RNA sequence: GAUCGCGCCGCGGGUCUGAUUACCGGCUUGUCCCCCGCCGCGUCAGGCUUGGACAAAGGCCUUAUCCCCCUCUCCGGGCCUUUGUCCCCACUUUAAGGUCGCCAUGGCCAACCUCCAGGCCAUGGCGACUUUUG
Number, nucleotide and partner (000 for none) at each position: 001g000002a000003u000004c000005g000006c000007g000008c000009c000010g000011c000012g000013g000014g000015u047016c046017u045018g044019a043020u042021u000022a000023c000024c000025g039026g038027c037028u000029u000030g000031u000032c000033c000034c000035c000036c000037g027038c026039c025040g000041c000042g020043u019044c018045a017046g016047g015048c000049u000050u000051g087052g086053a085054c084055a083056a082057a081058g080059g079060c078061c077062u000063u000064a000065u000066c000067c000068c000069c000070c000071u000072c000073u000074c000075c000076g000077g061078g060079c059080c058081u057082u056083u055084g054085u053086c052087c051088c000089c000090a000091c000092u000093u000094u000095a000096a130097g000098g000099u128100c127101g126102c125103c124104a123105u122106g121107g120108c119109c118110a000111a000112c000113c000114u000115c000116c000117a000118g109119g108120c107121c106122a105123u104124g103125g102126c101127g100128a099129c000130u096131u000132u000133u000134g000